[Rfam]
RNA sequence: GGAGCAGUGGUCUAGCCUGGUCUAGGAUGCCUGCCUGUCACGCAGGAGGUCGCGGGUUCGAAUCCCGUCUGCUCCG
Numbered sequence: 001g002g003a004g005c006a007g008u009g010g011u012c013u014a015g016c017c018u019g020g021u022c023u024a025g026g027a028u029g030c031c032u033g034c035c036u037g038u039c040a041c042g043c044a045g046g047a048g049g050u051c052g053c054g055g056g057u058u059c060g061a062a063u064c065c066c067g068u069c070u071g072c073u074c075c076g
Base pairs, nucleotide, nucleotide: 001075002074003073004072005071006070007069010028011027012026013025030046031045032044033043034042052068053067054066055065056064
The family of this 76-nucleotide sequence from Carboxydocella thermautotrophica is "tRNA". About the family: Transfer RNA (tRNA) molecules are approximately 80 nucleotides in length. Lineage of the source: Bacteria > Bacillati > Eubacteriales > Carboxydocella > Carboxydocella thermautotrophica. The base pairs follow the family's consensus structure, which is taken from published work. By type it is a transfer RNA. Gene Ontology term of the family: triplet codon-amino acid adaptor activity. A search with the family's covariance model found it, with a score of 64 bits.